This 87-nucleotide sequence from Priestia koreensis belongs to the Rfam family "BsrC". The match comes from Rfam's covariance-model search (74 bits). The literature on the family includes a 2008 paper in Gene by Saito et al., "Novel small RNA-encoding genes in the intergenic regions of Bacillus subtilis". The 301 nucleotide sequence from Kouji Nakamura has been trimmed to a highly conserved ~85 nucleotide long core to form this family. The organism belongs to Priestia, within Bacteria.
RNA sequence: UGUGUCUAGCACAACGAAAGCCCUACCUCUCUUUCGUCCUUACGGCUCCGAAGCCGUGCCAGUAUGAACCAGACUUGUGCAUCGCUU
Numbered sequence: 001u002g003u004g005u006c007u008a009g010c011a012c013a014a015c016g017a018a019a020g021c022c023c024u025a026c027c028u029c030u031c032u033u034u035c036g037u038c039c040u041u042a043c044g045g046c047u048c049c050g051a052a053g054c055c056g057u058g059c060c061a062g063u064a065u066g067a068a069c070c071a072g073a074c075u076u077g078u079g080c081a082u083c084g085c086u087u
Stems, first nucleotide, its partner, number of pairs: 034067003039062002041058007